[Rfam]
Rfam assigns this 177-nucleotide RNA from Caviibacterium pharyngocola to the family "Lysine riboswitch aptamer". A search with the family's covariance model found it, with a score of 144 bits. The organism belongs to Caviibacterium, within Bacteria.

RNA sequence: UACUUGUGUAGAGGUGCAGCCAUUAUAAGUAUUUUUUCUGAGUGGAUAACGAUGAGGAAAAAUGAAAGGAAUGGUUGCCGAAAUCAGUUGAAAGUCAUUUUAACUGGUUGGGGGCGUCUUUGAAAGAAACGUCACUGUCAUAGUCUUUUUUAGUCACUAUGGAGUGCUACUUGGUUA
Numbered sequence: 001u002a003c004u005u006g007u008g009u010a011g012a013g014g015u016g017c018a019g020c021c022a023u024u025a026u027a028a029g030u031a032u033u034u035u036u037u038c039u040g041a042g043u044g045g046a047u048a049a050c051g052a053u054g055a056g057g058a059a060a061a062a063u064g065a066a067a068g069g070a071a072u073g074g075u076u077g078c079c080g081a082a083a084u085c086a087g088u089u090g091a092a093a094g095u096c097a098u099u100u101u102a103a104c105u106g107g108u109u110g111g112g113g114g115c116g117u118c119u120u121u122g123a124a125a126g127a128a129a130c131g132u133c134a135c136u137g138u139c140a141u142a143g144u145c146u147u148u149u150u151u152a153g154u155c156a157c158u159a160u161g162g163a164g165u166g167c168u169a170c171u172u173g174g175u176u177a
Base pairs, nucleotide, nucleotide: 006172008170009169010168011167016078017077018076019075020074021073022072023071024070033062034061035060036059037058038057039056082109083108084107085106086105087104088103089102090101091100092099093098110136111135113133114132115131116130117129119127120126138162139161140160141159142158143157144156
Dot-bracket structure: .....(.((((....(((((((((........(((((((................))))))).......)))))))))...((((((((((((....))))))))))))((.(((((.((.....)).))))).)).(((((((...........)))))))....)))).).....
Rfam's curators write: Riboswitches are metabolite binding domains within certain messenger RNAs that serve as precision sensors for their corresponding targets.